Shown here is an 81-nucleotide sequence from Paenirhodobacter enshiensis, a member of the family "tRNA".

RNA sequence: GGGGGAAUGGCGGAACGGUAGACGCGGCUGACUCAAAAUCAGCUACCUGACGGUGUAGGGGUUCGAGUCCCCUUUCCCCUA
Numbered sequence: 001g002g003g004g005g006a007a008u009g010g011c012g013g014a015a016c017g018g019u020a021g022a023c024g025c026g027g028c029u030g031a032c033u034c035a036a037a038a039u040c041a042g043c044u045a046c047c048u049g050a051c052g053g054u055g056u057a058g059g060g061g062u063u064c065g066a067g068u069c070c071c072c073u074u075u076c077c078c079c080u081a
Base pairs, nucleotide, nucleotide: 001080002079003078004077005076006075007074010025011024012023027043028042029041030040031039057073058072059071060070061069